[Rfam]
RNA sequence: UCUAAAACUCGAGAUAUGGGUUGAACAUUGCACAAUGUCUAGGCUAUAUGACAGAUUUUGACUUCUUCGUUGUUGCUACCAUUUAAACUUGAAAAUGGCACUUUUAAAUCUGACUCUUUAUGAAAGUUUUAGACCUAUGUCUUAGAUUUCCAUA
Numbered sequence: 001u002c003u004a005a006a007a008c009u010c011g012a013g014a015u016a017u018g019g020g021u022u023g024a025a026c027a028u029u030g031c032a033c034a035a036u037g038u039c040u041a042g043g044c045u046a047u048a049u050g051a052c053a054g055a056u057u058u059u060g061a062c063u064u065c066u067u068c069g070u071u072g073u074u075g076c077u078a079c080c081a082u083u084u085a086a087a088c089u090u091g092a093a094a095a096u097g098g099c100a101c102u103u104u105u106a107a108a109u110c111u112g113a114c115u116c117u118u119u120a121u122g123a124a125a126g127u128u129u130u131a132g133a134c135c136u137a138u139g140u141c142u143u144a145g146a147u148u149u150c151c152a153u154a
Base pairs, nucleotide, nucleotide: 003152006149007148008145009144011143012142013141014140015139016138017137018136019135020134021132022131023130024129025128027127028126029125035121036120037119041117042116043115045113050110051109054105055104059100060099062098063097072088073087074086
RNA: MIR2912 microRNA precursor family